[Rfam]
RNA sequence: CUGAGAACCUAAUGGGAAGCAUACGGAACGUCAGCCCUGUAAUACACCCUAUAUGUGCAACACCAUCAAAUUGCCGGAAGUUCCUAAAGCUCAUGAGUACCGCGGAGGGUGUGAAAACAGCCUUGCAGCAGUAGGGCGUAAUGGCCUUAUGGAUGGUGACAACCUUAUGAGAUUUAAGCUGCCACAGAAGCUAGUUUUCGCGCUAGUUCUUCUGUGCUAGUUAUGCUCUGUGUUGGCGAUGAUGUCAUUAGUUAUUUGACUGUAAGUCAAUAGAAGCUAAGCGGCAAGAGUGUAGGAUCCAGCCUGGAUACUGAUUUCAGUCCAUGGAGUUUGUACUGCCUUAGGCAAGCAGUAGGUACGAGCUCGCGGCGCGAAAUGCUAAUGAUACACAGAGUCUCCUAAAAGGGAGAAUGGAUAAUCGGCAGCCAAGCCGCCUGGGAGAGACUCUUAGAGUUCCCGACGGUGCAGUUCACAGACUAGACGUUGGUGGGGGAGCGUGAGAUUAUUUAAAAGGGAAUGAUUUCAUGGUCUCUUAAGAUAUAGUCGACAGACGCCCGAAAGGGUAGU
Numbered sequence: 001c002u003g004a005g006a007a008c009c010u011a012a013u014g015g016g017a018a019g020c021a022u023a024c025g026g027a028a029c030g031u032c033a034g035c036c037c038u039g040u041a042a043u044a045c046a047c048c049c050u051a052u053a054u055g056u057g058c059a060a061c062a063c064c065a066u067c068a069a070a071u072u073g074c075c076g077g078a079a080g081u082u083c084c085u086a087a088a089g090c091u092c093a094u095g096a097g098u099a100c101c102g103c104g105g106a107g108g109g110u111g112u113g114a115a116a117a118c119a120g121c122c123u124u125g126c127a128g129c130a131g132u133a134g135g136g137c138g139u140a141a142u143g144g145c146c147u148u149a150u151g152g153a154u155g156g157u158g159a160c161a162a163c164c165u166u167a168u169g170a171g172a173u174u175u176a177a178g179c180u181g182c183c184a185c186a187g188a189a190g191c192u193a194g195u196u197u198u199c200g201c202g203c204u205a206g207u208u209c210u211u212c213u214g215u216g217c218u219a220g221u222u223a224u225g226c227u228c229u230g231u232g233u234u235g236g237c238g239a240u241g242a243u244g245u246c247a248u249u250a251g252u253u254a255u256u257u258g259a260c261u262g263u264a265a266g267u268c269a270a271u272a273g274a275a276g277c278u279a280a281g282c283g284g285c286a287a288g289a290g291u292g293u294a295g296g297a298u299c300c301a302g303c304c305u306g307g308a309u310a311c312u313g314a315u316u317u318c319a320g321u322c323c324a325u326g327g328a329g330u331u332u333g334u335a336c337u338g339c340c341u342u343a344g345g346c347a348a349g350c351a352g353u354a355g356g357u358a359c360g361a362g363c364u365c366g367c368g369g370c371g372c373g374a375a376a377u378g379c380u381a382a383u384g385a386u387a388c389a390c391a392g393a394g395u396c397u398c399c400u401a402a403a404a405g406g407g408a409g410a411a412u413g414g415a416u417a418a419u420c421g422g423c424a425g426c427c428a429a430g431c432c433g434c435c436u437g438g439g440a441g442a443g444a445c446u447c448u449u450a451g452a453g454u455u456c457c458c459g460a461c462g463g464u465g466c467a468g469u470u471c472a473c474a475g476a477c478u479a480g481a482c483g484u485u486g487g488u489g490g491g492g493g494a495g496c497g498u499g500a501g502a503u504u505a506u507u508u509a510a511a512a513g514g515g516a517a518u519g520a521u522u523u524c525a526u527g528g529u530c531u532c533u534u535a536a537g538a539u540a541u542a543g544u545c546g547a548c549a550g551a552c553g554c555c556c557g558a559a560a561g562g563g564u565a566g567u
Stems, first nucleotide, its partner, number of pairs: 061489005067483001072424006082415003425469002430464004438457004473546001475545005491532004496527004553564004